[Rfam]
RNA sequence: CUGACGGGCGCGUUCGGGUCAAUUGCGGCAUGCAACACCCGGUCUCUCUCCUGACGCCUCCCGGUAUGGAGGUUCGGGAGGGGGAGCGCGUGACCAUCAG
Number, nucleotide and partner (000 for none) at each position: 001c100002u099003g098004a097005c000006g000007g000008g091009c090010g089011c088012g087013u086014u000015c041016g040017g039018g038019u000020c000021a000022a000023u035024u034025g033026c032027g031028g000029c000030a000031u027032g026033c025034a024035a023036c000037a000038c018039c017040c016041g015042g000043u085044c084045u083046c082047u081048c080049u079050c078051c077052u076053g075054a000055c000056g000057c000058c000059u000060c000061c000062c000063g000064g000065u000066a000067u000068g000069g000070a000071g000072g000073u000074u000075c053076g052077g051078g050079a049080g048081g047082g046083g045084g044085a043086g013087c012088g011089c010090g009091u008092g000093a000094c000095c000096a000097u004098c003099a002100g001
Notes: L4-Archaeoglobi ribosomal protein leades: a 100-nucleotide RNA sequence from Halocalculus aciditolerans. The match comes from Rfam's covariance-model search (73 bits). By type it is a cis-regulatory leader. Lineage of the source: Archaea > Methanobacteriati > Methanobacteriota > Halobacteria > Halocalculus. On this family, see Eckert and Weinberg, BMC Microbiol 2020: "Discovery of 20 novel ribosomal leader candidates in bacteria and archaea". Pairs were carried over by alignment from the consensus structure, which is taken from published work.